[Rfam]
RNA sequence: GGCGAUAAAUGGCCUUCGUAAUAAGCCUAUCGGACCCGGGGGCGGUACCCGGCGCCUCCACCAAAUUCCAGACUGCCAUGGGGAAGCAUCCCUUGGAUCUGGAAUCCGGCGGGGGCGAAAUAGGAUCGACGAGGGUGUAAAGGUUGAGCUUUCGCUCGGCAUGGUUCCGCCGUUAUCGGGCCAUUCAAUAGUUGCAAACGACAACUAUGCCGAGGCAGCUCUCGCUGCGUAA
Number, nucleotide and partner (000 for none) at each position: 001g156002g155003c154004g153005a152006u000007a000008a000009a000010u000011g000012g000013c000014c146015u000016u000017c143018g000019u000020a000021a000022u000023a000024a000025g000026c135027c134028u133029a000030u132031c131032g130033g000034a000035c000036c052037c051038g050039g049040g048041g000042g000043c000044g000045g000046u000047a000048c040049c039050c038051g037052g036053c117054g116055c115056c114057u113058c112059c111060a000061c000062c000063a000064a000065a000066u000067u000068c000069c000070a000071g000072a000073c000074u000075g000076c000077c000078a000079u000080g000081g000082g000083g000084a000085a000086g000087c000088a000089u000090c000091c000092c000093u000094u000095g000096g000097a000098u000099c000100u000101g000102g000103a000104a000105u000106c000107c000108g000109g000110c000111g059112g058113g057114g056115g055116c054117g053118a000119a000120a000121u000122a000123g000124g000125a000126u000127c000128g000129a000130c032131g031132a030133g028134g027135g026136u000137g000138u000139a000140a000141a000142g000143g017144u000145u000146g014147a000148g000149c000150u000151u000152u005153c004154g003155c002156u001157c172158g171159g170160c169161a000162u000163g000164g000165u000166u000167c000168c000169g160170c159171c158172g157173u000174u000175a000176u000177c000178g000179g000180g000181c000182c000183a000184u000185u000186c000187a000188a000189u000190a000191g000192u000193u000194g000195c000196a000197a000198a000199c000200g000201a000202c000203a000204a000205c000206u000207a000208u000209g000210c000211c000212g000213a000214g000215g000216c000217a000218g000219c000220u000221c000222u000223c000224g000225c000226u000227g000228c000229g000230u000231a000232a000
Rfam assigns this 232-nucleotide RNA from Methyloligella sp. GL2 to the family "permuted transfer-messenger RNA". A search with the family's covariance model found it, with a score of 151 bits. It is annotated as a non-coding RNA gene. Bacterial tmRNA, also known as 10Sa RNA or SsrA, is named for its dual tRNA and mRNA-like properties. Its role is to liberate the mRNA from a stalled ribosome. To accomplish this part of the tmRNA is used as a reading frame that ends in a translation stop signal. The broken mRNA is replaced in the ribosome by the tmRNA and translation of the tmRNA leads to addition of a proteolysis tag to the incomplete protein enabling recognition by a protease. Recently a number of permuted tmRNA genes have been found encoded in two parts. tmRNAs have been identified in eubacteria and some chloroplasts but are absent from archaeal and eukaryote nuclear genomes. Gene Ontology term of the family: RNA catabolic process.